Shown here is a 69-nucleotide RNA from Coptotermes formosanus, a member of the family "mir-2 microRNA precursor family". Rfam 15.1 lists 918 matches to the family in 280 species. Gene Ontology terms of the family: RISC complex and miRNA-mediated post-transcriptional gene silencing. It scores 50 bits against the family's covariance model. A reference for the family is Lee and Ambros (2001), "An extensive class of small RNAs in Caenorhabditis elegans", Science.
RNA sequence: CCACUCACGAAGUUGCUGUGAUAUGUCACGUGUUCUGCAUCAUAUCACAGCCAGCUUUGAUGAGCGGUA
Numbered sequence: 001c002c003a004c005u006c007a008c009g010a011a012g013u014u015g016c017u018g019u020g021a022u023a024u025g026u027c028a029c030g031u032g033u034u035c036u037g038c039a040u041c042a043u044a045u046c047a048c049a050g051c052c053a054g055c056u057u058u059g060a061u062g063a064g065c066g067g068u069a
Base pairs, nucleotide, nucleotide: 005063006062007061008059009058010057011056012055013053015051016050017049018048019047020046021045024044025043026042